[Rfam]
RNA: Bacterial large subunit ribosomal RNA, nucleotides 1304 to 1611
RNA sequence: GAUAAUUAAAGUGAAAAACUUUAACGCGAAAAGUCUAAGGUUUCCUGAUCAACGUUAAUCGGAUCAGGGUUAGUCUGGUCCUUAGGAAAACCCGAAAGGGGCAUCUGAUGGAAAGCUGGUUAAUAUUCCAGCACCUGCUAUACAUUAAAAGUGACGCAGGGACGUGGUGGUUGCGUACGGACGGAAGUGUACGCCUGAGUGGAGUCUUCGGACAAAGCGAAACCAUAAAAUCCCUGCCAAGAAAAGCGAGUAUAGCAGCCAGUACCGGAAUCCGACACAGGUAGACGGGAUGAGUAUUCUAACGCGCU
Numbered sequence: 001g002a003u004a005a006u007u008a009a010a011g012u013g014a015a016a017a018a019c020u021u022u023a024a025c026g027c028g029a030a031a032a033g034u035c036u037a038a039g040g041u042u043u044c045c046u047g048a049u050c051a052a053c054g055u056u057a058a059u060c061g062g063a064u065c066a067g068g069g070u071u072a073g074u075c076u077g078g079u080c081c082u083u084a085g086g087a088a089a090a091c092c093c094g095a096a097a098g099g100g101g102c103a104u105c106u107g108a109u110g111g112a113a114a115g116c117u118g119g120u121u122a123a124u125a126u127u128c129c130a131g132c133a134c135c136u137g138c139u140a141u142a143c144a145u146u147a148a149a150a151g152u153g154a155c156g157c158a159g160g161g162a163c164g165u166g167g168u169g170g171u172u173g174c175g176u177a178c179g180g181a182c183g184g185a186a187g188u189g190u191a192c193g194c195c196u197g198a199g200u201g202g203a204g205u206c207u208u209c210g211g212a213c214a215a216a217g218c219g220a221a222a223c224c225a226u227a228a229a230a231u232c233c234c235u236g237c238c239a240a241g242a243a244a245a246g247c248g249a250g251u252a253u254a255g256c257a258g259c260c261a262g263u264a265c266c267g268g269a270a271u272c273c274g275a276c277a278c279a280g281g282u283a284g285a286c287g288g289g290a291u292g293a294g295u296a297u298u299c300u301a302a303c304g305c306g307c308u
Stems, first nucleotide, its partner, number of pairs: 006024006025306004033286004039266002044068006053061002075262004080111002085106003091100003115132005135258009145248001151247002156237004169223001171221001173194006204218002208215001272281002288300003
Dot-bracket structure: .....((((((.......))))))((((....((((..((...((((((...((.....)).))))))......((((.((...(((...(((....)))...)))...))...(((((........)))))..(((((((((.(.....((...((((.........(.(.((((((..........)))))).........((..(......).))..).)..........))))........))).)))))))))))))..)).....((......)).)))).(((.......)))..))))..